[Rfam]
RNA sequence: CUUAUUUAUGCCGUCUGGGGGAUGGCUUGGCUUGAGUCGCUGAUGAAGGCCGUGGCAAGCUGCGAUAAGCCCAGGGGAGGAGCAUGCAUCCUUGGAUCCUGGGAUUGCCGAAUGGGACUUCCUGGCCGCCCCUGCACUCUGUGCGGGGGCUGGUCACUCCCCUUCUCUGGGGAGGGGGAACCCGCUGAACUGAAACAUCUUAGUAGGCGGAGGAAGAGAAAGCAAUAUGCGAUGCCGUGAGUAAUGGCGAAUGAAAGCGGUGGAGGACAAACUGAAUCCAUCAUGGUGACGUGGUGGAGAUGUGGUGUUGCGGACCCCCUUAGGGGUUCCAGGUGUGGUUGGGUUGAACUUGGGCUGGAAUGCCCGGGCCGUAGAGGGUUAAAGCCCCGUAGACUUGCUGUGCCUGGCCCUGCAGGGGUGUUCCUGAGUAGCGUCCAUUGGAUAUUGGGCGUGAAGCUGGGAGGCAUCGACUCCUAAUCCUAAACACGUCUCAAGUCCGAUAGCGAACUAGUACCGUGAGGGAAAGCUGAAAAGUACCCCUGAUAGGGGUGUGAAAAGUGCCUGAAACCAGGCGGUGACAGCCC
Numbered sequence: 001c002u003u004a005u006u007u008a009u010g011c012c013g014u015c016u017g018g019g020g021g022a023u024g025g026c027u028u029g030g031c032u033u034g035a036g037u038c039g040c041u042g043a044u045g046a047a048g049g050c051c052g053u054g055g056c057a058a059g060c061u062g063c064g065a066u067a068a069g070c071c072c073a074g075g076g077g078a079g080g081a082g083c084a085u086g087c088a089u090c091c092u093u094g095g096a097u098c099c100u101g102g103g104a105u106u107g108c109c110g111a112a113u114g115g116g117a118c119u120u121c122c123u124g125g126c127c128g129c130c131c132c133u134g135c136a137c138u139c140u141g142u143g144c145g146g147g148g149g150c151u152g153g154u155c156a157c158u159c160c161c162c163u164u165c166u167c168u169g170g171g172g173a174g175g176g177g178g179a180a181c182c183c184g185c186u187g188a189a190c191u192g193a194a195a196c197a198u199c200u201u202a203g204u205a206g207g208c209g210g211a212g213g214a215a216g217a218g219a220a221a222g223c224a225a226u227a228u229g230c231g232a233u234g235c236c237g238u239g240a241g242u243a244a245u246g247g248c249g250a251a252u253g254a255a256a257g258c259g260g261u262g263g264a265g266g267a268c269a270a271a272c273u274g275a276a277u278c279c280a281u282c283a284u285g286g287u288g289a290c291g292u293g294g295u296g297g298a299g300a301u302g303u304g305g306u307g308u309u310g311c312g313g314a315c316c317c318c319c320u321u322a323g324g325g326g327u328u329c330c331a332g333g334u335g336u337g338g339u340u341g342g343g344u345u346g347a348a349c350u351u352g353g354g355c356u357g358g359a360a361u362g363c364c365c366g367g368g369c370c371g372u373a374g375a376g377g378g379u380u381a382a383a384g385c386c387c388c389g390u391a392g393a394c395u396u397g398c399u400g401u402g403c404c405u406g407g408c409c410c411u412g413c414a415g416g417g418g419u420g421u422u423c424c425u426g427a428g429u430a431g432c433g434u435c436c437a438u439u440g441g442a443u444a445u446u447g448g449g450c451g452u453g454a455a456g457c458u459g460g461g462a463g464g465c466a467u468c469g470a471c472u473c474c475u476a477a478u479c480c481u482a483a484a485c486a487c488g489u490c491u492c493a494a495g496u497c498c499g500a501u502a503g504c505g506a507a508c509u510a511g512u513a514c515c516g517u518g519a520g521g522g523a524a525a526g527c528u529g530a531a532a533a534g535u536a537c538c539c540c541u542g543a544u545a546g547g548g549g550u551g552u553g554a555a556a557a558g559u560g561c562c563u564g565a566a567a568c569c570a571g572g573c574g575g576u577g578a579c580a581g582c583c584c
Stems, first nucleotide, its partner, number of pairs: 009577010024562001025527002029498002031495006038488002048109003051064003070103006079091003114123003157174005181212001182210005192199002222230002234261005244252002264481004272305003282293004316418004326410001329407001343394003349367001352365004370374001376388003431452007459475005514521002
Dot-bracket structure: ........((((((((((.....(((..((((((((.((........((((((........))).....((((((...(((.......)))......))))))...)))....(((....))).................................(((((........)))))......((((((.....((....))......))))).).........((.....))...(((((.....((.....))....)))))..((((....(((.......((((....)))).........)))..........((((......(..(.............(((...(..((((......)))).)..(...).(((.......)))...)))............)..)....))))............(((((((........)))))))......(((((.......)))))..)))).....)).)))))).))...............((....))....))..................................).....)))))))))).......